[Rfam]
RNA: Purine riboswitch aptamer
Organism: Halobacillus yeomjeoni
RNA sequence: CAAUCAAAUGCAUUCUUCCUUCGUAUAUCCUCGAGAAUCGGCUCGAGAGUCUCUACCGGGGCACCGUAAAUGCUCUGACUAUGAAGGUGGGAAUCACGAGA
Numbered sequence: 001c002a003a004u005c006a007a008a009u010g011c012a013u014u015c016u017u018c019c020u021u022c023g024u025a026u027a028u029c030c031u032c033g034a035g036a037a038u039c040g041g042c043u044c045g046a047g048a049g050u051c052u053c054u055a056c057c058g059g060g061g062c063a064c065c066g067u068a069a070a071u072g073c074u075c076u077g078a079c080u081a082u083g084a085a086g087g088u089g090g091g092a093a094u095c096a097c098g099a100g101a
Stems, first nucleotide, its partner, number of pairs: 018087008030047006057077007